[Rfam]
The family of this 109-nucleotide sequence from Paenibacillus alvei is "EGFOA RNA".
By type it is a small RNA.

RNA sequence: UCACUCCCAGAAUCACACCGUCGCAGUAGCUUAUUAGCUAGGUGGCAUGACAGAGUUGUAUUCAAAUACAUACGUGGUAAAGCUGCACCUGGGCACGUUGAAUGUCAUG
Numbered sequence: 001u002c003a004c005u006c007c008c009a010g011a012a013u014c015a016c017a018c019c020g021u022c023g024c025a026g027u028a029g030c031u032u033a034u035u036a037g038c039u040a041g042g043u044g045g046c047a048u049g050a051c052a053g054a055g056u057u058g059u060a061u062u063c064a065a066a067u068a069c070a071u072a073c074g075u076g077g078u079a080a081a082g083c084u085g086c087a088c089c090u091g092g093g094c095a096c097g098u099u100g101a102a103u104g105u106c107a108u109g
Stems, first nucleotide, its partner, number of pairs: 006093005020088002023086004027040005046109007057070005072098005